Rfam assigns this 91-nucleotide RNA from Kineosporia babensis to the family "Glycine riboswitch aptamer".

RNA sequence: AAGACCCCGGCGGGAGAGACCCCGUCCAACGGGGCGCCGAAGGGGCAACUCUCCCCGGAACCUCUCAGGCGCCAGGGACCGCCAGGGCGAG
Dot-bracket structure: .....((.(((((......((((.......)))).(((((..(((...(.......)....))))).)))........))))).)).....
The base pairs follow the family's consensus structure.